[Rfam]
RNA sequence: GACUUACGUUUUGUGGCGAGCUUAACCGAGUAGGGGAGGCGUAGCGAAAGCGAGUUCGAAUAGAGCGAAGAGUCUCAAGGCGUAGACCCGAAACCAGAUGAGCUAUCCAUGGCCAGGUUGAAGGUGUGGUAACACACACUGGAGGACCGAACCGACUAGUGUUGCAAAAUUAGCGGAUGAGCUGUGGAUAGGGGUGAAAGGCUUAACAAAUCUGGAGAUAGCUGGUU
Numbered sequence: 001g002a003c004u005u006a007c008g009u010u011u012u013g014u015g016g017c018g019a020g021c022u023u024a025a026c027c028g029a030g031u032a033g034g035g036g037a038g039g040c041g042u043a044g045c046g047a048a049a050g051c052g053a054g055u056u057c058g059a060a061u062a063g064a065g066c067g068a069a070g071a072g073u074c075u076c077a078a079g080g081c082g083u084a085g086a087c088c089c090g091a092a093a094c095c096a097g098a099u100g101a102g103c104u105a106u107c108c109a110u111g112g113c114c115a116g117g118u119u120g121a122a123g124g125u126g127u128g129g130u131a132a133c134a135c136a137c138a139c140u141g142g143a144g145g146a147c148c149g150a151a152c153c154g155a156c157u158a159g160u161g162u163u164g165c166a167a168a169a170u171u172a173g174c175g176g177a178u179g180a181g182c183u184g185u186g187g188a189u190a191g192g193g194g195u196g197a198a199a200g201g202c203u204u205a206a207c208a209a210a211u212c213u214g215g216a217g218a219u220a221g222c223u224g225g226u227u
Base pairs, nucleotide, nucleotide: 005084006083007082008081009080010079011078012077013076015074016073017072020040021039022038023037026034027033044051045050054066055065056064057063087225088224090222094215095214096213097212098211099210103191104190105189106188107187108186109185110184111183112182113181114179116148117147118146119145123140124139125138126137127136128135152176153175154174156173157172158171159170160169193203194202195201
RNA: Bacterial large subunit ribosomal RNA, nucleotides 586 to 812
Organism: Sutterella sp. AM11-39